This 268-nucleotide part of an RNA from Halalkaliarchaeum desulfuricum belongs to the Rfam family "Archaeal large subunit ribosomal RNA".
Lineage of the source: Archaea > Methanobacteriati > Methanobacteriota > Halobacteria > Halalkaliarchaeum.
Clan: LSU clan.
The match comes from Rfam's covariance-model search (2717 bits).

[Rfam]
RNA sequence: GACUGUACUUGCUUGGCGAGUCUAACCCGAGAAUCGGGGGAGGCGAAGGGAAACCGACAGGGCCGCAGCGCGUUUCGACGUGCGAGGGCCGCCGUGUUCAAGCGCGGGGAGUCAAGCGGGUACGACCCGAAACCAGGUGAUCUACGCAGGGGCAGGGUGAAGCGUGGCGAAAGCCACGUGGAGGCCCGUUAGAGUUGGUGUCUUACAAUACCCUCUCGUGACCCGUGUGUAGGGGUGAAAGGCCCAUCGAACCUGGCAACAGCUGGUU
Dot-bracket structure: ....(((((((((((((..((((..((((.....))))..))))...((....)).....((((...((((((....))))))...))))..((((......))))....)))))))))))))..((.(...((((((...(((((((.((((.((((...(((((((....)))))))....))))....(((..((.((........)))).)))..).))).))))))).(((.....)))......))))))......).))..
Numbered sequence: 001g002a003c004u005g006u007a008c009u010u011g012c013u014u015g016g017c018g019a020g021u022c023u024a025a026c027c028c029g030a031g032a033a034u035c036g037g038g039g040g041a042g043g044c045g046a047a048g049g050g051a052a053a054c055c056g057a058c059a060g061g062g063c064c065g066c067a068g069c070g071c072g073u074u075u076c077g078a079c080g081u082g083c084g085a086g087g088g089c090c091g092c093c094g095u096g097u098u099c100a101a102g103c104g105c106g107g108g109g110a111g112u113c114a115a116g117c118g119g120g121u122a123c124g125a126c127c128c129g130a131a132a133c134c135a136g137g138u139g140a141u142c143u144a145c146g147c148a149g150g151g152g153c154a155g156g157g158u159g160a161a162g163c164g165u166g167g168c169g170a171a172a173g174c175c176a177c178g179u180g181g182a183g184g185c186c187c188g189u190u191a192g193a194g195u196u197g198g199u200g201u202c203u204u205a206c207a208a209u210a211c212c213c214u215c216u217c218g219u220g221a222c223c224c225g226u227g228u229g230u231a232g233g234g235g236u237g238a239a240a241g242g243c244c245c246a247u248c249g250a251a252c253c254u255g256g257c258a259a260c261a262g263c264u265g266g267u268u
Stems, first nucleotide, its partner, number of pairs: 005123013020044004026038004048055002061090004068083006093106004126266002129263001133256006142232007150224003153220001155187004162179007192217003197213002200211002234244003